[Rfam]
RNA sequence: AAAAAAGCAGGGAUCUGUUGCCUUUUGUGAAUGGGUCUCUCGUAAACUUCAGGGAAAUUAGUUGCAUUGUUAUUGGGUGAACCGCAUGAGUAUUGUUUGUGAUUGAAGGUUCAGUAAAUAAUGGUACAUUA
Numbered sequence: 001a002a003a004a005a006a007g008c009a010g011g012g013a014u015c016u017g018u019u020g021c022c023u024u025u026u027g028u029g030a031a032u033g034g035g036u037c038u039c040u041c042g043u044a045a046a047c048u049u050c051a052g053g054g055a056a057a058u059u060a061g062u063u064g065c066a067u068u069g070u071u072a073u074u075g076g077g078u079g080a081a082c083c084g085c086a087u088g089a090g091u092a093u094u095g096u097u098u099g100u101g102a103u104u105g106a107a108g109g110u111u112c113a114g115u116a117a118a119u120a121a122u123g124g125u126a127c128a129u130u131a
Base pairs, nucleotide, nucleotide: 005049006048007047011038012037014035015034016033017032065123066122067121068120069119070118071117078113079112080111081110082109083108
This 131-nucleotide RNA sequence from Vitis rotundifolia belongs to the Rfam family "Small nucleolar RNA snoR74". The organism belongs to Vitis, within Eukaryota.